Rfam assigns this 135-nucleotide RNA sequence from Lipotes vexillifer to the family "Small nucleolar RNA SNORA48". Gene Ontology terms of the family: RNA processing and nucleolus. The snoRNA ACA 48 has been identified to guide pseudouridylation of the residue U3797 in the 28S rRNA subunit. A reference for the family is Ofengand and Bakin (1997), "Mapping to nucleotide resolution of pseudouridine residues in large subunit ribosomal RNAs from representative eukaryotes, prokaryotes, archaebacteria, mitochondria and chloroplasts", J Mol Biol.
RNA sequence: UGCCCCUGACCUGGGUCGAGUGGCACCUAGUUGCUGGUGCCUGUCUCAUAUCAGCCGGGGACAAAGCAACUCCUUGUUUAUCCCAGCCUGGCUUUUGGUCUGUGCCCAUGCCUGGUUCAUGCCCCAGAUGCAUGG
Numbered sequence: 001u002g003c004c005c006c007u008g009a010c011c012u013g014g015g016u017c018g019a020g021u022g023g024c025a026c027c028u029a030g031u032u033g034c035u036g037g038u039g040c041c042u043g044u045c046u047c048a049u050a051u052c053a054g055c056c057g058g059g060g061a062c063a064a065a066g067c068a069a070c071u072c073c074u075u076g077u078u079u080a081u082c083c084c085a086g087c088c089u090g091g092c093u094u095u096u097g098g099u100c101u102g103u104g105c106c107c108a109u110g111c112c113u114g115g116u117u118c119a120u121g122c123c124c125c126a127g128a129u130g131c132a133u134g135g
Stems, first nucleotide, its partner, number of pairs: 001063002004060005011054004018047003022041006075130005090123003096119003100115003104111002

Notes
Rfam classes the family as an H/ACA-box small nucleolar RNA.